DnaX ribosomal frameshifting element: a 65-nucleotide RNA from Serratia sp. DD3. It is annotated as a frameshift element. The source organism's lineage runs through Bacteria, Pseudomonadota, Gammaproteobacteria, Yersiniaceae and Serratia. About the family: This family represents a ribosomal frameshifting element found in the mRNA of the dnaX gene in E. coli. The dnaX gene has two encoded products tau and gamma which are produced in a 1:1 ratio. The gamma protein is synthesised due to programmed frameshifting and is shorter than tau. The two products of the dnaX gene are DNA polymerase III subunits. Its family is annotated with translational frameshifting in the Gene Ontology. A search with the family's covariance model found it, with a score of 55 bits.

[Rfam]
RNA sequence: AACAGGGGGCAUCCACCGCAAAAAAGAGUGAGCCGGCUGCACCAAUAAAUGGGCGGCCGGCGAAC
Numbered sequence: 001a002a003c004a005g006g007g008g009g010c011a012u013c014c015a016c017c018g019c020a021a022a023a024a025a026g027a028g029u030g031a032g033c034c035g036g037c038u039g040c041a042c043c044a045a046u047a048a049a050u051g052g053g054c055g056g057c058c059g060g061c062g063a064a065c
Stems, first nucleotide, its partner, number of pairs: 032061006039054002042052003